[Rfam]
RNA sequence: AGGGCUUCAAGUUUUAUACAAAUUGAGUUGAUAUGUUGCUGACAUUUUUAUGAUGCAAUGUUAUAUAUUGAAGCCUAAAAUAAAUGAUCCCCUCGCUAUCUAAAACUUCAAAUUUUUAUGUUGUUUUGGACGUCGGGGAUCUACAUUG
Numbered sequence: 001a002g003g004g005c006u007u008c009a010a011g012u013u014u015u016a017u018a019c020a021a022a023u024u025g026a027g028u029u030g031a032u033a034u035g036u037u038g039c040u041g042a043c044a045u046u047u048u049u050a051u052g053a054u055g056c057a058a059u060g061u062u063a064u065a066u067a068u069u070g071a072a073g074c075c076u077a078a079a080a081u082a083a084a085u086g087a088u089c090c091c092c093u094c095g096c097u098a099u100c101u102a103a104a105a106c107u108u109c110a111a112a113u114u115u116u117u118a119u120g121u122u123g124u125u126u127u128g129g130a131c132g133u134c135g136g137g138g139a140u141c142u143a144c145a146u147u148g
Stems, first nucleotide, its partner, number of pairs: 003075003008070003013065001019060002023058003027054004033048001035046001086141007094132002099130005109120002
Background: The record is a 148-nucleotide sequence from Acer saccharum, which matches "Small nucleolar RNA snoR136" in Rfam. Taxonomically the source falls in Acer (Eukaryota, Mesangiospermae, Pentapetalae, rosids). The family has 8 seed sequences and 452 matches in Rfam 15.1. The base pairs follow the family's consensus structure, which was predicted with mfold. By type it is an H/ACA-box small nucleolar RNA. Rfam links the family to the GO terms RNA processing and nucleolus.